c-di-GMP-I riboswitch aptamer: a 76-nucleotide RNA sequence from Clostridium sp. SY8519.
The organism belongs to Clostridium, within Bacteria.
The family's consensus secondary structure is taken from published work.

RNA sequence: UGCUGAUCAUGGCAAAACAGAUGAAAAUCUGUGACGCAAAGCUGCAGGGUCUUUGUCAUGGCAGCCAGUUGCGCUU
Numbered sequence: 001u002g003c004u005g006a007u008c009a010u011g012g013c014a015a016a017a018c019a020g021a022u023g024a025a026a027a028u029c030u031g032u033g034a035c036g037c038a039a040a041g042c043u044g045c046a047g048g049g050u051c052u053u054u055g056u057c058a059u060g061g062c063a064g065c066c067a068g069u070u071g072c073g074c075u076u
Stems, first nucleotide, its partner, number of pairs: 012037002017032006040070004047066002049062003